Source information
The family of this 75-nucleotide RNA sequence from Lasius niger is "mir-980 microRNA precursor family". Its family is annotated with miRNA-mediated post-transcriptional gene silencing and RISC complex in the Gene Ontology. The organism belongs to Lasius, within Eukaryota. A search with the family's covariance model found it, with a score of 58 bits.
RNA sequence: AUUACGUUGCGGCUCGUCAUUAGGCACUUUGCUUUUUUUUAAUGCCAGCUGCCUACUGAAGGGCAACACCGUGGU
Numbered sequence: 001a002u003u004a005c006g007u008u009g010c011g012g013c014u015c016g017u018c019a020u021u022a023g024g025c026a027c028u029u030u031g032c033u034u035u036u037u038u039u040u041a042a043u044g045c046c047a048g049c050u051g052c053c054u055a056c057u058g059a060a061g062g063g064c065a066a067c068a069c070c071g072u073g074g075u
Stems, first nucleotide, its partner, number of pairs: 004072003008068002012064004017059003023053002028048002031045002